[Rfam]
RNA sequence: AAGAUUGGGUUAUGAAAAUGGCCCGGUCGCAGAGCAAUCUGCGGCAUAAAAUAUCGAGUGAAUUCGGUAAACCCUAAUUUUGUGAAAUCACAAAUACGGCAAUACCGAGCCAAGCAUAAUGGUGACAUUAUGAAGGUGUAGAGACUACCGCGAGUAAUCUUUUUUGAAAGACAAAAGCGGCAUGAGCGCUCGACGCCCUUAAAGGGUGAUGAUAUAGUCCGAUACCCGGAAGAAAUUCCGGG
Number, nucleotide and partner (000 for none) at each position: 001a000002a000003g000004a000005u026006u025007g024008g023009g022010u021011u020012a019013u018014g000015a000016a000017a000018a013019u012020g011021g010022c009023c008024c007025g006026g005027u000028c000029g000030c041031a040032g039033a000034g000035c000036a000037a000038u000039c032040u031041g030042c000043g000044g000045c000046a000047u000048a000049a000050a000051a000052u000053a000054u193055c192056g191057a190058g000059u188060g187061a000062a000063u000064u108065c107066g106067g105068u104069a103070a000071a000072c000073c099074c098075u000076a000077a095078u094079u093080u092081u000082g000083u000084g000085a000086a000087a000088u000089c000090a000091c000092a080093a079094a078095u077096a000097c000098g074099g073100c000101a000102a000103u069104a068105c067106c066107g065108a064109g137110c136111c000112a000113a000114g000115c000116a000117u000118a000119a000120u000121g000122g000123u000124g000125a000126c000127a000128u000129u000130a000131u000132g000133a000134a000135g000136g110137u109138g000139u000140a000141g220142a000143g219144a218145c217146u216147a215148c000149c000150g000151c000152g000153a000154g000155u000156a000157a000158u000159c000160u000161u000162u000163u000164u000165u000166g000167a000168a000169a000170g000171a000172c000173a000174a000175a000176a000177g000178c000179g000180g000181c000182a000183u000184g000185a000186g000187c060188g059189c000190u057191c056192g055193a054194c000195g000196c206197c205198c204199u203200u000201a000202a000203a199204g198205g197206g196207u000208g000209a000210u000211g000212a000213u000214a000215u147216a146217g145218u144219c143220c141221g000222a000223u000224a000225c000226c000227c240228g239229g238230a237231a236232g000233a000234a000235a000236u231237u230238c229239c228240g227241g000242g000
Overview
Rfam assigns this 242-nucleotide RNA sequence from Halarsenatibacter silvermanii to the family "Group I catalytic intron". On this family, see Cech, Annu Rev Biochem 1990: "Self-splicing of group I introns". Taxonomically the source falls in Halarsenatibacter (Bacteria, Bacillati, Clostridia, Halarsenatibacteraceae). From the family's description: Group I catalytic introns are large self-splicing ribozymes. Rfam links the family to the GO term Group I intron splicing.